This 93-nucleotide sequence from Theobroma umbraticum belongs to the Rfam family "Small nucleolar RNA snoR8a". The family has 7 seed sequences and 956 matches in Rfam 15.1. On this family, see Brown et al., RNA 2001: "Multiple snoRNA gene clusters from Arabidopsis". Rfam links the family to the GO terms nucleolus and RNA processing. A search with the family's covariance model found it, with a score of 40 bits. The source organism's lineage runs through Eukaryota, Streptophytina, Gunneridae, Pentapetalae and Theobroma.
Nucleotides: 093
Stems, first nucleotide, its partner, number of pairs: 003093002006091002
Number, partner (000 for none) and nucleotide at each position: 001000g002000a003093g004092u005000u006091a007090g008000c009000a010000a011000u012000g013000a014000u015000u016000a017000u018000a019000g020000a021000a022000a023000u024000a025000a026000u027000u028000c029000u030000u031000u032000g033000c034000u035000c036000u037000a038000a039000u040000u041000u042000a043000c044000u045000u046000a047000a048000u049000u050000u051000g052000a053000a054000u055000a056000u057000g058000a059000c060000a061000a062000a063000c064000c065000u066000c067000u068000u069000a070000u071000u072000a073000c074000a075000a076000c077000a078000a079000u080000a081000g082000a083000a084000u085000c086000u087000g088000a089000g090007c091006u092004g093003c